[Rfam]
Nucleotides: 383
Base pairs, nucleotide, nucleotide: 001379002378003377004376005375006374007373008372009371010370011368012348013347014346015345016344017343018342020041021040022039023038024037025036026035027034028033046366047365048364050363051362052361053360054359055236056235057234058233062284063283064282065281067232068231069230070229071228072086073085074084075083076082087101088099089098090097091096102227103226107225108224109221110220111219124167125166126163127162128161131158132157133156134155175193176192177191178190179189180188194216195214196213197212198211199210200209201208202207240305241304242303243302250296251295252294253293254292255291275289276288277287278286279285312331313330314329315328316327317326318325319324
Number, partner (000 for none) and nucleotide at each position: 001379g002378g003377a004376g005375u006374c007373g008372g009371c010370c011368g012348g013347a014346c015345a016344g017343u018342c019000g020041c021040u022039c023038u024037u025036c026035c027034c028033g029000c030000u031000c032000g033028c034027g035026g036025g037024g038023a039022g040021g041020g042000a043000g044000g045000a046366a047365a048364g049000u050363c051362c052361g053360g054359g055236c056235u057234c058233c059000a060000g061000a062284g063283g064282g065281c066000a067232g068231g069230g070229u071228g072086c073085c074084a075083g076082g077000u078000a079000a080000c081000g082076c083075c084074u085073g086072g087101g088099g089098g090097g091096c092000g093000c094000g095000a096091g097090c098089c099088c100000a101087c102227g103226g104000a105000a106000a107225g108224u109221g110220c111219c112000a113000c114000a115000g116000a117000a118000a119000a120000u121000a122000u123000a124167c125166c126163g127162c128161c129000a130000g131158u132157c133156u134155u135000u136000g137000u138000c139000c140000g141000g142000u143000u144000a145000c146000g147000g148000c149000c150000g151000g152000a153000a154000c155134a156133g157132g158131a159000a160000a161128g162127g163126u164000a165000a166125g167124g168000g169000u170000g171000a172000a173000a174000u175193g176192g177191u178190g179189c180188g181000g182000u183000a184000a185000g186000a187000g188180c189179g190178c191177a192176c193175c194216g195214c196213g197212c198211c199210g200209g201208u202207g203000g204000c205000a206000a207202c208201a209200u210199c211198g212197g213196c214195g215000g216194c217000a218000g219111g220110g221109u222000a223000a224108a225107c226103c227102c228071c229070a230069c231068c232067c233058g234057g235056a236055g237000c238000a239000a240305g241304a242303c243302c244000a245000a246000a247000u248000a249000g250296g251295g252294g253293g254292g255291c256000g257000g258000g259000c260000a261000g262000u263000c264000c265000u266000u267000g268000a269000c270000u271000g272000c273000c274000g275289u276288g277287c278286g279285c280000g281065g282064c283063c284062c285279g286278c287277g288276c289275g290000u291255g292254c293253c294252c295251c296250c297000g298000g299000g300000u301000a302243g303242g304241u305240c306000g307000c308000u309000c310000g311000a312331g313330g314329c315328g316327c317326a318325u319324g320000g321000c322000g323000a324319c325318a326317u327316g328315c329314g330313u331312c332000c333000c334000a335000g336000a337000u338000g339000a340000a341000u342018g343017a344016c345015u346014g347013u348012c349000c350000g351000c352000g353000a354000c355000a356000g357000a358000a359054c360053c361052c362051g363050g364048c365047u366046u367000a368011c369000a370010g371009g372008c373007c374006g375005a376004c377003u378002c379001c380000c381000c382000a383000c